[Rfam]
RNA: Bacterial RNase P class A
RNA sequence: GAAGUCAGCCAGACAAUCGCUGCUAAGUAACUUUUUCGUUAUUUAGGGGAGGAAAGUCCGGGCUCCACAGGGCAGGGUGCCAGAUAACGUCUGGGCGGCGUGAGCCGACGACAAGUGCAGCAGAGAGAAGACCGCCAUGUUUGCCGUAAAAAGCGCGUGGUAAGGGUGAAAGGGUGCGGUAAGAGCGCACCGCAUUACUGGUAACAGUUGAUGGCGAGGUAAACUCCACUCGGAGCAAGACCAAAUAGGUUUCCAAUCGAUGCGGCCCGCAUUGGAAACGGGUAGGUUGCUUGAGCUAGUUAGCGAUGACUGGCCUAGAGGAAUGAUUGUCCAAGACAGAACCCGGCUUAUGGCUGACUUCACUU
Numbered sequence: 001g002a003a004g005u006c007a008g009c010c011a012g013a014c015a016a017u018c019g020c021u022g023c024u025a026a027g028u029a030a031c032u033u034u035u036u037c038g039u040u041a042u043u044u045a046g047g048g049g050a051g052g053a054a055a056g057u058c059c060g061g062g063c064u065c066c067a068c069a070g071g072g073c074a075g076g077g078u079g080c081c082a083g084a085u086a087a088c089g090u091c092u093g094g095g096c097g098g099c100g101u102g103a104g105c106c107g108a109c110g111a112c113a114a115g116u117g118c119a120g121c122a123g124a125g126a127g128a129a130g131a132c133c134g135c136c137a138u139g140u141u142u143g144c145c146g147u148a149a150a151a152a153g154c155g156c157g158u159g160g161u162a163a164g165g166g167u168g169a170a171a172g173g174g175u176g177c178g179g180u181a182a183g184a185g186c187g188c189a190c191c192g193c194a195u196u197a198c199u200g201g202u203a204a205c206a207g208u209u210g211a212u213g214g215c216g217a218g219g220u221a222a223a224c225u226c227c228a229c230u231c232g233g234a235g236c237a238a239g240a241c242c243a244a245a246u247a248g249g250u251u252u253c254c255a256a257u258c259g260a261u262g263c264g265g266c267c268c269g270c271a272u273u274g275g276a277a278a279c280g281g282g283u284a285g286g287u288u289g290c291u292u293g294a295g296c297u298a299g300u301u302a303g304c305g306a307u308g309a310c311u312g313g314c315c316u317a318g319a320g321g322a323a324u325g326a327u328u329g330u331c332c333a334a335g336a337c338a339g340a341a342c343c344c345g346g347c348u349u350a351u352g353g354c355u356g357a358c359u360u361c362a363c364u365u
Base pairs, nucleotide, nucleotide: 001361002360003359004358005357006356007355008354009353010352011351012331013330014329015328016327017326018325020049021048023046024045025044026043027042028041029040030039031038054349055348056347058346059345060344061343062342063235064234065233066232070268071267072266073265075231076230077229078228079227080094081093082092083091084090095109096107097106098105099104110226111225115224116223117220118219132165133164134161135160136159137158138157139156140155142153173191174190175189176188177187178186192215193213194212195211196210197209198207199206200205239288240287241286242285249279250278251277252276253275254274259273260272261271262270263269295314296313297312298311299310300309301308302307